[Rfam]
About this RNA:
Shown here is a 100-nucleotide sequence from Okibacterium fritillariae, a member of the family "mraW RNA". Rfam classes the family as a cis-regulatory element.

RNA sequence: UCUAGUCCCUGCGUUCUGACUCCCAGCCGUCCACUCCCUGGCACACUUCCCCGUUGCCAGGUCGGGUCGGAUGGGGAUCAGAGUCCAGGGGCCACCCGGU
Numbered sequence: 001u002c003u004a005g006u007c008c009c010u011g012c013g014u015u016c017u018g019a020c021u022c023c024c025a026g027c028c029g030u031c032c033a034c035u036c037c038c039u040g041g042c043a044c045a046c047u048u049c050c051c052c053g054u055u056g057c058c059a060g061g062u063c064g065g066g067u068c069g070g071a072u073g074g075g076g077a078u079c080a081g082a083g084u085c086c087a088g089g090g091g092c093c094a095c096c097c098g099g100u
Base pairs, nucleotide, nucleotide: 010087011086013084014083015082016081018079019078021076022075023074024073025072027070028069029068031066032065034064037061038060039059040058041057042056043055